This 75-nucleotide RNA sequence belongs to the Rfam family "RAGATH-18 RNA".
[Rfam]
RNA sequence: CCUGUGGAAUGCCACCCCAACGCCAGUAGCCAGCCACUCCCCGUGGCCGCCAAAACGGGCAUGACGAAACAGGAA
Numbered sequence: 001c002c003u004g005u006g007g008a009a010u011g012c013c014a015c016c017c018c019a020a021c022g023c024c025a026g027u028a029g030c031c032a033g034c035c036a037c038u039c040c041c042c043g044u045g046g047c048c049g050c051c052a053a054a055a056c057g058g059g060c061a062u063g064a065c066g067a068a069a070c071a072g073g074a075a
Stems, first nucleotide, its partner, number of pairs: 001073005009062005021057002029050002033047005